This 83-nucleotide RNA sequence from Papaver somniferum belongs to the Rfam family "Small nucleolar RNA R11/Z151". A reference for the family is Barneche et al. (2001), "Identification of 66 box C/D snoRNAs in Arabidopsis thaliana: extensive gene duplications generated multiple isoforms predicting new ribosomal RNA 2'-O-methylation sites", J Mol Biol. Rfam 15.1 lists 802 matches to the family in 218 species. The organism belongs to Papaver, within Eukaryota. It is annotated as a C/D-box small nucleolar RNA. Pairs were carried over by alignment from the consensus structure, which was predicted with PFOLD. Its family is annotated with RNA processing and nucleolus in the Gene Ontology. A search with the family's covariance model found it, with a score of 80 bits.
RNA sequence: AGGCUAAUGAUGAUAAAUUUUAUAUCUUAGUGGAUUUCAGUGAGAUUUUAUCAAUGAUCUGAAUGUUACACACACUGAAGCCU
Numbered sequence: 001a002g003g004c005u006a007a008u009g010a011u012g013a014u015a016a017a018u019u020u021u022a023u024a025u026c027u028u029a030g031u032g033g034a035u036u037u038c039a040g041u042g043a044g045a046u047u048u049u050a051u052c053a054a055u056g057a058u059c060u061g062a063a064u065g066u067u068a069c070a071c072a073c074a075c076u077g078a079a080g081c082c083u
Base pairs, nucleotide, nucleotide: 001083002082003081004080005079